A member of the RNA family "Small nucleolar RNA sR22" from Thermococcus barophilus, 57 nucleotides long.

[Rfam]
RNA sequence: GCCGAUGAUGGCAACAGGGUAGCUGCCGAUUGAUGACGAAGCCGUUCCAGUCUGAGG
Numbered sequence: 001g002c003c004g005a006u007g008a009u010g011g012c013a014a015c016a017g018g019g020u021a022g023c024u025g026c027c028g029a030u031u032g033a034u035g036a037c038g039a040a041g042c043c044g045u046u047c048c049a050g051u052c053u054g055a056g057g
Base pairs, nucleotide, nucleotide: 002057003056011048013046014045015044018027019026020025030041031040